RNA sequence: UGUUAAGCGCUUACUAUGUGCCAAGCACUGUACUAGAACAGUGCUUGGCACAUAGUAAGCGCUUAACA
Dot-bracket structure: (((((((((((((((((((((((((((((..........)))))))))))))))))))))))))))))
Numbered sequence: 001u002g003u004u005a006a007g008c009g010c011u012u013a014c015u016a017u018g019u020g021c022c023a024a025g026c027a028c029u030g031u032a033c034u035a036g037a038a039c040a041g042u043g044c045u046u047g048g049c050a051c052a053u054a055g056u057a058a059g060c061g062c063u064u065a066a067c068a
Stems, first nucleotide, its partner, number of pairs: 001068029